Shown here is a 92-nucleotide RNA from Pipistrellus kuhlii, a member of the family "Small nucleolar RNA SNORD91 family".
RNA sequence: UAGAGAAGUCAAUGAUGGUGUAACCCAACAUGUCUGAACCUGUCUGAAGCAUCAUAAUGAUGCAACCUGUGUGGUCUGAGACUUCUCUGAGA
Numbered sequence: 001u002a003g004a005g006a007a008g009u010c011a012a013u014g015a016u017g018g019u020g021u022a023a024c025c026c027a028a029c030a031u032g033u034c035u036g037a038a039c040c041u042g043u044c045u046g047a048a049g050c051a052u053c054a055u056a057a058u059g060a061u062g063c064a065a066c067c068u069g070u071g072u073g074g075u076c077u078g079a080g081a082c083u084u085c086u087c088u089g090a091g092a
Stems, first nucleotide, its partner, number of pairs: 004086007
The pairing is the family consensus, mapped onto this sequence. The literature on the family includes a 2001 paper in EMBO J by Huttenhofer et al., "RNomics: an experimental approach that identifies 201 candidates for novel, small, non-messenger RNAs in mouse". Rfam 15.1 lists 977 matches to the family in 495 species. By type it is a C/D-box small nucleolar RNA.